About this RNA: MIR7502 microRNA precursor family: a 145-nucleotide RNA sequence from Gossypium anomalum. The base pairs follow the family's consensus structure, which was predicted with RNAalifold. Rfam links the family to the GO terms RISC complex and miRNA-mediated post-transcriptional gene silencing.

RNA sequence: UGUUAAAAAUUUUAUCUAUUUUUACUAUUAAAAACUAAUAAUUAUAUAUCAGAAUAAGGUAUAUGUGGCACACUAUGUGUAACUGUAUGGUUAUUUCACUAGGCAUUCAACUUUUUAACAGUAAAAAUAAAUAAAAAUUUUAACA
Numbered sequence: 001u002g003u004u005a006a007a008a009a010u011u012u013u014a015u016c017u018a019u020u021u022u023u024a025c026u027a028u029u030a031a032a033a034a035c036u037a038a039u040a041a042u043u044a045u046a047u048a049u050c051a052g053a054a055u056a057a058g059g060u061a062u063a064u065g066u067g068g069c070a071c072a073c074u075a076u077g078u079g080u081a082a083c084u085g086u087a088u089g090g091u092u093a094u095u096u097c098a099c100u101a102g103g104c105a106u107u108c109a110a111c112u113u114u115u116u117a118a119c120a121g122u123a124a125a126a127a128u129a130a131a132u133a134a135a136a137a138u139u140u141u142a143a144c145a
Stems, first nucleotide, its partner, number of pairs: 002144007010136006018128009028118006